[Rfam]
The family of this 306-nucleotide RNA from Camelus dromedarius is "7SK RNA". The family's RNA type in Rfam is non-coding RNA gene. The organism belongs to Camelus, within Eukaryota. A search with the family's covariance model found it, with a score of 244 bits. The family has 45 seed sequences and 49,373 matches in Rfam 15.1. Pairs were carried over by alignment from the consensus structure, which is taken from published work. About the family: 7SK was discovered as an abundant small nuclear RNA in the mid-70s but a possible function has only recently been suggested.

RNA sequence: GGAUGUGAGGGCGAUCUGGCUGCGACAUCUGUCACCCCAUUGAUCGCCAGGGCCGAUUCGGCUGAUCUGGCUGGCUGGGCCAGUGUCCCCUUCCUCCCUCACCACUCCAUGUGCAUCCCUCCCAAAGCUGCGUGCUUGGUCAAAGAGGACGACCAUCCCCGAUAGAGGAGGACCGUUCUUCUCGGUCAAGGGUAUACGAGUAGCUGCGCUCUCCUGCUAGAACAAGCUCUCAGAGGCUUGUCCUGAGCAUUAAAUAAGCAACUAUUUUAUCAAACACUGAGAACGGUGCCUGGCACAUCGUGUUUU
Number, nucleotide and partner (000 for none) at each position: 001g108002g107003a106004u000005g102006u101007g100008a099009g098010g097011g096012c000013g093014a092015u000016c000017u000018g090019g089020c000021u000022g000023c000024g087025a086026c085027a084028u083029c000030u000031g080032u079033c078034a000035c074036c073037c070038c069039a068040u000041u000042g067043a066044u065045c064046g062047c061048c060049a000050g000051g000052g000053c000054c000055g000056a000057u000058u000059c000060g048061g047062c046063u000064g045065a044066u043067c042068u039069g038070g037071c000072u000073g036074g035075c000076u000077g000078g033079g032080c031081c000082a000083g028084u027085g026086u025087c024088c000089c019090c018091u000092u014093c013094c000095u000096c011097c010098c009099u008100c007101a006102c005103c000104a000105c000106u003107c002108c001109a000110u000111g000112u000113g000114c000115a000116u171117c170118c168119c167120u166121c165122c139123c138124a137125a136126a000127g135128c134129u000130g000131c000132g000133u000134g128135c127136u125137u124138g123139g122140u162141c161142a000143a000144a000145g000146a000147g158148g157149a156150c000151g000152a000153c000154c000155a000156u149157c148158c147159c000160c000161g141162a140163u000164a000165g121166a120167g119168g118169a000170g117171g116172a000173c000174c000175g000176u000177u000178c000179u000180u000181c000182u000183c000184g000185g000186u000187c000188a000189a000190g000191g000192g000193u000194a000195u000196a000197c000198g000199a000200g000201u000202a000203g259204c258205u257206g000207c000208g000209c000210u254211c000212u252213c000214c000215u249216g248217c247218u000219a000220g000221a000222a000223c000224a000225a000226g000227c000228u000229c000230u000231c000232a000233g000234a000235g000236g000237c000238u000239u000240g000241u000242c000243c000244u000245g000246a000247g217248c216249a215250u000251u000252a212253a000254a210255u000256a000257a205258g204259c203260a000261a000262c000263u000264a000265u000266u000267u000268u000269a000270u000271c000272a000273a000274a000275c000276a000277c000278u000279g000280a306281g305282a304283a303284c302285g299286g298287u297288g296289c000290c000291u000292g000293g000294c000295a000296c288297a287298u286299c285300g000301u000302g284303u283304u282305u281306u280